[Rfam]
RNA sequence: AAGAGUAUAGUUUAAAGGUAAAACAGAAAGCUUCAACCUUUAAUUUCUUAGUUCGAGUCUAAGUGCUCUUG
Numbered sequence: 001a002a003g004a005g006u007a008u009a010g011u012u013u014a015a016a017g018g019u020a021a022a023a024c025a026g027a028a029a030g031c032u033u034c035a036a037c038c039u040u041u042a043a044u045u046u047c048u049u050a051g052u053u054c055g056a057g058u059c060u061a062a063g064u065g066c067u068c069u070u071g
Stems, first nucleotide, its partner, number of pairs: 001070007010024004027041004047063005
Dot-bracket structure: (((((((..((((.......))))..((((.......)))).....(((((.......)))))))))))).
Rfam assigns this 71-nucleotide sequence from Podospora anserina to the family "tRNA". Taxonomically the source falls in Podospora (Eukaryota, saccharomyceta, leotiomyceta, Podosporaceae). The family's RNA type in Rfam is transfer RNA. About the family: Transfer RNA (tRNA) molecules are approximately 80 nucleotides in length.